[Rfam]
RNA sequence: UUACAUGUUGUGAUAAUACAAUUGUUUGUGGACUAGAGUUUCUGAUCCAGGUAAAUCCCAGAAGCUGAAGACUAACCCUGGGCUGUCUGAGCACAAAA
Numbered sequence: 001u002u003a004c005a006u007g008u009u010g011u012g013a014u015a016a017u018a019c020a021a022u023u024g025u026u027u028g029u030g031g032a033c034u035a036g037a038g039u040u041u042c043u044g045a046u047c048c049a050g051g052u053a054a055a056u057c058c059c060a061g062a063a064g065c066u067g068a069a070g071a072c073u074a075a076c077c078c079u080g081g082g083c084u085g086u087c088u089g090a091g092c093a094c095a096a097a098a
Stems, first nucleotide, its partner, number of pairs: 001098002006093003039070004046063001048061001050059002